[Rfam]
RNA sequence: UCAGCGUCCCAACGGCUUCCUGACGGGACGGUUAGCAACUCUAUCGGAGCG
Numbered sequence: 001u002c003a004g005c006g007u008c009c010c011a012a013c014g015g016c017u018u019c020c021u022g023a024c025g026g027g028a029c030g031g032u033u034a035g036c037a038a039c040u041c042u043a044u045c046g047g048a049g050c051g
Base pairs, nucleotide, nucleotide: 004032005031006029007028008027009026010025013022014021015050016049017048019047020046
Annotation
The family of this 51-nucleotide sequence from Jannaschia aquimarina is "SAM/SAH riboswitch aptamer". The base pairs follow the family's consensus structure, which is taken from published work.